RNA sequence: GAGUGUAUCUAAUUGGCGAGCCUAACUCGAGUAUCGAGGCAGGCACAGGGAAACCAAUACGGCCGCAGCGCUUUGCGUGAGGGCCACCGUCUUCAAGGGCGGGGAGUCAAUUGGAUACGACCCGAAACCGGAUGAUCUACGCAUGAGCAAGACGAAGCGUGGCGAAAGCCACGUGGAGGUCUGUUAGAGUUGGUGUCCUACAAUACCCUCUCGUGACUUAUGUGUAGGGGUGAAAGGCCCAUCGAAUCCGGCAACAGCUGGUU
Numbered sequence: 001g002a003g004u005g006u007a008u009c010u011a012a013u014u015g016g017c018g019a020g021c022c023u024a025a026c027u028c029g030a031g032u033a034u035c036g037a038g039g040c041a042g043g044c045a046c047a048g049g050g051a052a053a054c055c056a057a058u059a060c061g062g063c064c065g066c067a068g069c070g071c072u073u074u075g076c077g078u079g080a081g082g083g084c085c086a087c088c089g090u091c092u093u094c095a096a097g098g099g100c101g102g103g104g105a106g107u108c109a110a111u112u113g114g115a116u117a118c119g120a121c122c123c124g125a126a127a128c129c130g131g132a133u134g135a136u137c138u139a140c141g142c143a144u145g146a147g148c149a150a151g152a153c154g155a156a157g158c159g160u161g162g163c164g165a166a167a168g169c170c171a172c173g174u175g176g177a178g179g180u181c182u183g184u185u186a187g188a189g190u191u192g193g194u195g196u197c198c199u200a201c202a203a204u205a206c207c208c209u210c211u212c213g214u215g216a217c218u219u220a221u222g223u224g225u226a227g228g229g230g231u232g233a234a235a236g237g238c239c240c241a242u243c244g245a246a247u248c249c250g251g252c253a254a255c256a257g258c259u260g261g262u263u
Stems, first nucleotide, its partner, number of pairs: 005118013020044004026038004048055002061085004068078004088101004121261002124258001128251006137227011148215001150182004157174007187212003192208002195206002229239003
Archaeal large subunit ribosomal RNA: a 263-nucleotide part of an RNA from Haladaptatus paucihalophilus. NCBI's taxonomy places the organism under Archaea, Methanobacteriati, Methanobacteriota, Haladaptatus, Haladaptatus paucihalophilus. The family's consensus secondary structure is taken from published work. Gene Ontology terms of the family: ribosome and structural constituent of ribosome.